[Rfam]
RNA sequence: GGCUGAGACUCGAACUGUAGCCUUAAUGGCGUGCGUGCCCUAGCGGGAUAGAGUCUCAGUUUUUU
Numbered sequence: 001g002g003c004u005g006a007g008a009c010u011c012g013a014a015c016u017g018u019a020g021c022c023u024u025a026a027u028g029g030c031g032u033g034c035g036u037g038c039c040c041u042a043g044c045g046g047g048a049u050a051g052a053g054u055c056u057c058a059g060u061u062u063u064u065u
Stems, first nucleotide, its partner, number of pairs: 001061011016035003020030003038047003

Description:
The family of this 65-nucleotide RNA is "DUF3800-IX RNA". The family's RNA type in Rfam is small RNA. Rfam describes the family as follows. Actinobacteria, Firmicutes (1 example), Nitrospirae, Proteobacteria, Verrucomicrobia (1 example). The family's consensus secondary structure is taken from published work.